RNA: nrdJ RNA
Organism: Streptomyces sp. ISL-10
RNA sequence: ACCUGUCACGGGCGCCGAAGAGGCGCUCCGGGACAACAGACACAAGCAGUGCCACGGGAAGAUCUGGGCACUUCAGGGCGUU
Numbered sequence: 001a002c003c004u005g006u007c008a009c010g011g012g013c014g015c016c017g018a019a020g021a022g023g024c025g026c027u028c029c030g031g032g033a034c035a036a037c038a039g040a041c042a043c044a045a046g047c048a049g050u051g052c053c054a055c056g057g058g059a060a061g062a063u064c065u066g067g068g069c070a071c072u073u074c075a076g077g078g079c080g081u082u
Stems, first nucleotide, its partner, number of pairs: 004035004009030003012026005049071005056064001